Shown here is an 89-nucleotide RNA sequence from Peptoniphilus sp. oral taxon 386, a member of the family "tRNA". It is annotated as a transfer RNA.
[Rfam]
RNA sequence: GGAAAGAUGGUCGAGUUGGCUUAAGGCGCUCGCCUGGAAAGCGGGUAUACGUUAAUAGCGUAUCGGGGGUUCGAAUCCCCCUCUUUCCG
Numbered sequence: 001g002g003a004a005a006g007a008u009g010g011u012c013g014a015g016u017u018g019g020c021u022u023a024a025g026g027c028g029c030u031c032g033c034c035u036g037g038a039a040a041g042c043g044g045g046u047a048u049a050c051g052u053u054a055a056u057a058g059c060g061u062a063u064c065g066g067g068g069g070u071u072c073g074a075a076u077c078c079c080c081c082u083c084u085u086u087c088c089g
Base pairs, nucleotide, nucleotide: 001088002087003086004085005084006083007082010027011026012025029045030044031043032042033041065081066080067079068078069077